[Rfam]
This 80-nucleotide RNA from Drosophila ananassae belongs to the Rfam family "mir-955 microRNA precursor family". Gene Ontology terms of the family: RISC complex and miRNA-mediated post-transcriptional gene silencing. The family has 2 seed sequences and 13 matches in Rfam 15.1.
RNA sequence: UCAUCAGCUCCAUCGUGCAGAGGUUUGAGUGUCUAAUUUUUAACCAUUCGCAUUCAACCUUUGGACGGUAGAGAUGGUCA
Numbered sequence: 001u002c003a004u005c006a007g008c009u010c011c012a013u014c015g016u017g018c019a020g021a022g023g024u025u026u027g028a029g030u031g032u033c034u035a036a037u038u039u040u041u042a043a044c045c046a047u048u049c050g051c052a053u054u055c056a057a058c059c060u061u062u063g064g065a066c067g068g069u070a071g072a073g074a075u076g077g078u079c080a
Stems, first nucleotide, its partner, number of pairs: 003078004008073003012069005018063008027055006